[Rfam]
RNA sequence: GCCGGGCACAGUGGCUUGUGCCUGUAAUCCAAGCUCCAGGGAGGCUGAAACUGGCAGAUGGCUUGAACUGAGAGGUUCUGGGCUGCAGCGAGCUGUGCUGAGCAGGCGUCUGUGCUAAGUUCAGCAUCGAUACAGUGGUCCUGGGGGAGCCAGGGGCCACCAGGUCACCUAAGGAGGGGUAAACCGGCCCAGGCUGGGGAGGGAGCAGGUCAAAGCUCCCGUGAUGAUCAGUAGUGGGAUCACGCCUGUGAACAGUCCCCGUAGCGCAGCCCGAGCGAGAGAGCGGGACCCAGUUUUCU
Numbered sequence: 001g002c003c004g005g006g007c008a009c010a011g012u013g014g015c016u017u018g019u020g021c022c023u024g025u026a027a028u029c030c031a032a033g034c035u036c037c038a039g040g041g042a043g044g045c046u047g048a049a050a051c052u053g054g055c056a057g058a059u060g061g062c063u064u065g066a067a068c069u070g071a072g073a074g075g076u077u078c079u080g081g082g083c084u085g086c087a088g089c090g091a092g093c094u095g096u097g098c099u100g101a102g103c104a105g106g107c108g109u110c111u112g113u114g115c116u117a118a119g120u121u122c123a124g125c126a127u128c129g130a131u132a133c134a135g136u137g138g139u140c141c142u143g144g145g146g147g148a149g150c151c152a153g154g155g156g157c158c159a160c161c162a163g164g165u166c167a168c169c170u171a172a173g174g175a176g177g178g179g180u181a182a183a184c185c186g187g188c189c190c191a192g193g194c195u196g197g198g199g200a201g202g203g204a205g206c207a208g209g210u211c212a213a214a215g216c217u218c219c220c221g222u223g224a225u226g227a228u229c230a231g232u233a234g235u236g237g238g239a240u241c242a243c244g245c246c247u248g249u250g251a252a253c254a255g256u257c258c259c260c261g262u263a264g265c266g267c268a269g270c271c272c273g274a275g276c277g278a279g280a281g282a283g284c285g286g287g288a289c290c291c292a293g294u295u296u297u298c299u
Stems, first nucleotide, its partner, number of pairs: 001045003004023008028042003047297008059286001061284004068275002072271001078269003082265005088259001090257001092256005098250001102249008110238002113236005119229001121227003125223003129166003135160008144151002168174002176219005186211004194203002

A member of the RNA family "Metazoan signal recognition particle RNA" from Tyto alba, 299 nucleotides long. On this family, see Wild et al., Curr Opin Struct Biol 2002: "Towards the structure of the mammalian signal recognition particle". The signal recognition particle (SRP) is a universally conserved ribonucleoprotein. It is involved in the co-translational targeting of proteins to membranes. The eukaryotic SRP consists of a 300-nucleotide 7S RNA and six proteins: SRPs 72, 68, 54, 19, 14, and 9. The family's RNA type in Rfam is non-coding RNA gene. Its family is annotated with signal recognition particle, endoplasmic reticulum targeting and SRP-dependent cotranslational protein targeting to membrane, signal sequence recognition in the Gene Ontology. The family has 91 seed sequences and 383,523 matches in Rfam 15.1.